[Rfam]
RNA sequence: AGGAUUCACUAAGCGCCAGAGCUUGCGAGGAGUUUGAUGCGGCUGCUGCGUGGCCAUCCGGAAAUGGCUGUGCGGGCAAUCGGCUGUAUUGAGCGGCAAGCUGACGAGGUGGAGGUGUUCGGAAUGAUCGGCGGGGACCUCCCGGUAUUGCAUUUGACCGUAAGCCGAUACUCAAAUAGACCGGGCGACCGGGCUGACAAAGGGUCGGUAAAAUGCUCC
Numbered sequence: 001a002g003g004a005u006u007c008a009c010u011a012a013g014c015g016c017c018a019g020a021g022c023u024u025g026c027g028a029g030g031a032g033u034u035u036g037a038u039g040c041g042g043c044u045g046c047u048g049c050g051u052g053g054c055c056a057u058c059c060g061g062a063a064a065u066g067g068c069u070g071u072g073c074g075g076g077c078a079a080u081c082g083g084c085u086g087u088a089u090u091g092a093g094c095g096g097c098a099a100g101c102u103g104a105c106g107a108g109g110u111g112g113a114g115g116u117g118u119u120c121g122g123a124a125u126g127a128u129c130g131g132c133g134g135g136g137a138c139c140u141c142c143c144g145g146u147a148u149u150g151c152a153u154u155u156g157a158c159c160g161u162a163a164g165c166c167g168a169u170a171c172u173c174a175a176a177u178a179g180a181c182c183g184g185g186c187g188a189c190c191g192g193g194c195u196g197a198c199a200a201a202g203g204g205u206c207g208g209u210a211a212a213a214u215g216c217u218c219c
Base pairs, nucleotide, nucleotide: 020102021101022100023099024098025097026096111142112141113140114139115138119131120130121129122128143160144159145158146157164209165208166207167206168205169204178195179194181192182191183190184189
Record summary: A member of the RNA family "glmS glucosamine-6-phosphate activated ribozyme aptamer" from Paenibacillus montanisoli, 219 nucleotides long. Lineage of the source: Bacteria > Bacillati > Caryophanales > Paenibacillaceae > Paenibacillus. Rfam's curators write: This entry contains a glucosamine-6-phosphate activated ribozyme that is found in the mRNA for GlmS. GlmS is an enzyme that uses fructose-6-phosphate and glutamine to generate glucosamine-6-phosphate. The ribozyme catalyses self cleavage of the glmS mRNA that is thought to regulate GlmS activity. Rfam classes the family as a riboswitch.